[Rfam]
mir-9193 microRNA precursor family: a 73-nucleotide RNA sequence from Myotis lucifugus. The source organism's lineage runs through Eukaryota, Gnathostomata, Mammalia, Yangochiroptera and Myotis. Pairs were carried over by alignment from the consensus structure, which was predicted with RNAalifold. Rfam 15.1 lists 6,008 matches to the family in 8 species.
RNA sequence: AUUGGAGGAAGGGGUCCCUCAGCCUGGAUUGUGAGAGGUUGCAGGCCAGGCCGAGGGACCCCACGGGUGCACA
Numbered sequence: 001a002u003u004g005g006a007g008g009a010a011g012g013g014g015u016c017c018c019u020c021a022g023c024c025u026g027g028a029u030u031g032u033g034a035g036a037g038g039u040u041g042c043a044g045g046c047c048a049g050g051c052c053g054a055g056g057g058a059c060c061c062c063a064c065g066g067g068u069g070c071a072c073a
Stems, first nucleotide, its partner, number of pairs: 003071002006068001011062010022051003026047002029044005